The family of this 508-nucleotide RNA from Streptomyces adustus is "Saccharopolyspora sRNA 350". By type it is an antisense RNA. For this family Rfam cites "Prediction and characterization of small non-coding RNAs related to secondary metabolites in Saccharopolyspora erythraea" (Liu et al., PLoS One, 2013). Lineage of the source: Bacteria > Bacillati > Actinomycetota > Kitasatosporales > Streptomyces.
RNA sequence: CGGGCGGUGUACUCCCAGAUGGCCUCCGGGUCGACCAGUGCCGCCUCCCCGAAGUACGCGCCGUCGGCGAGGACGCCCAGCACGGCGUCGUCGCCGUAGGGGCCGGUGCCGACCUUCUCCACCCUGCCGUGCGCCAGCAGGUACACCUCGUCCGUGCGGCUGCCGAACGAGGCGAUCAGCUCGCCCGGGGCGUACUCCCGCUGCCGGCAGCGCUGGGCCAGCUCGGCGAGCACCUCCUCGUCCUCGUAGUCCCGCAGGGCGGGCAGUUCGCCCAGCUCGGCGGGGAUGACCUCCACCCGGUCCCCCGUCUUCACGAACGUGAUGCGGCCGUCGCCGACCGCGUAGGUCAGGCGCCGGUUCACCCGGUACGUGCCGCCCUGCACGUCCACCCAGGGCAGCAUGCGCAGCAGCCAGCGCGAGCUGAUCUCCUGCAUCUGAGGAGCGGACUUGGUGGUGGUGGCCAGGUUCCGCGCUGCGGCUGUGCCGAGGCUCUGCUGCGGCUUGCCCU
Numbered sequence: 001c002g003g004g005c006g007g008u009g010u011a012c013u014c015c016c017a018g019a020u021g022g023c024c025u026c027c028g029g030g031u032c033g034a035c036c037a038g039u040g041c042c043g044c045c046u047c048c049c050c051g052a053a054g055u056a057c058g059c060g061c062c063g064u065c066g067g068c069g070a071g072g073a074c075g076c077c078c079a080g081c082a083c084g085g086c087g088u089c090g091u092c093g094c095c096g097u098a099g100g101g102g103c104c105g106g107u108g109c110c111g112a113c114c115u116u117c118u119c120c121a122c123c124c125u126g127c128c129g130u131g132c133g134c135c136a137g138c139a140g141g142u143a144c145a146c147c148u149c150g151u152c153c154g155u156g157c158g159g160c161u162g163c164c165g166a167a168c169g170a171g172g173c174g175a176u177c178a179g180c181u182c183g184c185c186c187g188g189g190g191c192g193u194a195c196u197c198c199c200g201c202u203g204c205c206g207g208c209a210g211c212g213c214u215g216g217g218c219c220a221g222c223u224c225g226g227c228g229a230g231c232a233c234c235u236c237c238u239c240g241u242c243c244u245c246g247u248a249g250u251c252c253c254g255c256a257g258g259g260c261g262g263g264c265a266g267u268u269c270g271c272c273c274a275g276c277u278c279g280g281c282g283g284g285g286a287u288g289a290c291c292u293c294c295a296c297c298c299g300g301u302c303c304c305c306c307g308u309c310u311u312c313a314c315g316a317a318c319g320u321g322a323u324g325c326g327g328c329c330g331u332c333g334c335c336g337a338c339c340g341c342g343u344a345g346g347u348c349a350g351g352c353g354c355c356g357g358u359u360c361a362c363c364c365g366g367u368a369c370g371u372g373c374c375g376c377c378c379u380g381c382a383c384g385u386c387c388a389c390c391c392a393g394g395g396c397a398g399c400a401u402g403c404g405c406a407g408c409a410g411c412c413a414g415c416g417c418g419a420g421c422u423g424a425u426c427u428c429c430u431g432c433a434u435c436u437g438a439g440g441a442g443c444g445g446a447c448u449u450g451g452u453g454g455u456g457g458u459g460g461c462c463a464g465g466u467u468c469c470g471c472g473c474u475g476c477g478g479c480u481g482u483g484c485c486g487a488g489g490c491u492c493u494g495c496u497g498c499g500g501c502u503u504g505c506c507c508u
Stems, first nucleotide, its partner, number of pairs: 006390004011385002016380001018328001021325001025322002029318001031316002038314003043309001045307001049300003054233002057230001059228005065111004075103001077102002082097005118221001122217002126213002130209001132206002135203003140198002143196001149192002155188001158185003161178002235295001240290003244286002250282001252280003256277002259271003329342003351379001353377001355375003360372003391431005397425001399423002403418003407415001437476001439474002442471005447465006477507002481501002484499001487496002